[Rfam]
RNA sequence: GAGCAAUGAGGACGACAGCGCAUCCUGUGAUGCUGGGAGCAUCACGACCGUCUGAUUAUCGGAUGACCUCAAUGCCUUUGAGCUC
Numbered sequence: 001g002a003g004c005a006a007u008g009a010g011g012a013c014g015a016c017a018g019c020g021c022a023u024c025c026u027g028u029g030a031u032g033c034u035g036g037g038a039g040c041a042u043c044a045c046g047a048c049c050g051u052c053u054g055a056u057u058a059u060c061g062g063a064u065g066a067c068c069u070c071a072a073u074g075c076c077u078u079u080g081a082g083c084u085c
Stems, first nucleotide, its partner, number of pairs: 001085004
Shown here is an 85-nucleotide RNA from Phoenix dactylifera, a member of the family "small nucleolar RNA snoR114". The match comes from Rfam's covariance-model search (47 bits). The organism belongs to Phoenix, within Eukaryota. Rfam links the family to the GO terms RNA processing and nucleolus. The family has 24 seed sequences and 1,645 matches in Rfam 15.1.